A member of the RNA family "Eukaryotic large subunit ribosomal RNA" from Meloidogyne incognita, 412 nucleotides of a longer RNA. For this family Rfam cites "The comparative RNA web (CRW) site: an online database of comparative sequence and structure information for ribosomal, intron, and other RNAs" (Cannone et al., BMC Bioinformatics, 2002).
RNA sequence: ACUUGUUGCUAUGAUGGUAAUCCUGCUUAGUACGAGAGGAACCGCAGGUUCAGACAUUUGGUUCAUGUGCUUGGUCGAUAGGCCAAUGGCGCGAAGCUACCAUCUGAGGGAUUAUGACUGAACGCCUCUAAGUCAGAAUCCCGCCCAGUCAUGAUAGCAAUAUAUAUCGCUCUCCGGUGUCGAAAGGCAAAAUGUAUACCACUUUUGUGGUAGUACAAGCCCCAGUAUCUGGCAUUUUCUUUCUACUAUAAUUGGUAGUUGGUUGCUAAAAGCUUAGCACUCCUCGUGCAGGUGUAACGUCGGGGCGCAAAAUCACUUGUAUACUACUUGAAUACUGGUCAGGGGGUUGUAUCCAGUAGAGCAGCUCUUCGCUGCGAUCUGUUGAGACUUAGCCCUUGAUCGGAUGAUUUGU
Numbered sequence: 001a002c003u004u005g006u007u008g009c010u011a012u013g014a015u016g017g018u019a020a021u022c023c024u025g026c027u028u029a030g031u032a033c034g035a036g037a038g039g040a041a042c043c044g045c046a047g048g049u050u051c052a053g054a055c056a057u058u059u060g061g062u063u064c065a066u067g068u069g070c071u072u073g074g075u076c077g078a079u080a081g082g083c084c085a086a087u088g089g090c091g092c093g094a095a096g097c098u099a100c101c102a103u104c105u106g107a108g109g110g111a112u113u114a115u116g117a118c119u120g121a122a123c124g125c126c127u128c129u130a131a132g133u134c135a136g137a138a139u140c141c142c143g144c145c146c147a148g149u150c151a152u153g154a155u156a157g158c159a160a161u162a163u164a165u166a167u168c169g170c171u172c173u174c175c176g177g178u179g180u181c182g183a184a185a186g187g188c189a190a191a192a193u194g195u196a197u198a199c200c201a202c203u204u205u206u207g208u209g210g211u212a213g214u215a216c217a218a219g220c221c222c223c224a225g226u227a228u229c230u231g232g233c234a235u236u237u238u239c240u241u242u243c244u245a246c247u248a249u250a251a252u253u254g255g256u257a258g259u260u261g262g263u264u265g266c267u268a269a270a271a272g273c274u275u276a277g278c279a280c281u282c283c284u285c286g287u288g289c290a291g292g293u294g295u296a297a298c299g300u301c302g303g304g305g306c307g308c309a310a311a312a313u314c315a316c317u318u319g320u321a322u323a324c325u326a327c328u329u330g331a332a333u334a335c336u337g338g339u340c341a342g343g344g345g346g347u348u349g350u351a352u353c354c355a356g357u358a359g360a361g362c363a364g365c366u367c368u369u370c371g372c373u374g375c376g377a378u379c380u381g382u383u384g385a386g387a388c389u390u391a392g393c394c395c396u397u398g399a400u401c402g403g404a405u406g407a408u409u410u411g412u
Stems, first nucleotide, its partner, number of pairs: 005161008015147003020050001022048005051106004059099003066093005071086006108142003115135005172305009310410005316330001319327001336402006342395003346388002354381003358378001361375005